[Rfam]
RNA: Glycine riboswitch aptamer
RNA sequence: UAAAAAAAUCUUGGAGAGACCCAUUAAGGGAGCCGAAGGUGUAAGGUUUAUCUUUACCGAUCUCUCAGGCAAAAGGACAGGAGAAGAAGA
Numbered sequence: 001u002a003a004a005a006a007a008a009u010c011u012u013g014g015a016g017a018g019a020c021c022c023a024u025u026a027a028g029g030g031a032g033c034c035g036a037a038g039g040u041g042u043a044a045g046g047u048u049u050a051u052c053u054u055u056a057c058c059g060a061u062c063u064c065u066c067a068g069g070c071a072a073a074a075g076g077a078c079a080g081g082a083g084a085a086g087a088a089g090a
Stems, first nucleotide, its partner, number of pairs: 009082005020030003032070003035066002039064001041062001045058002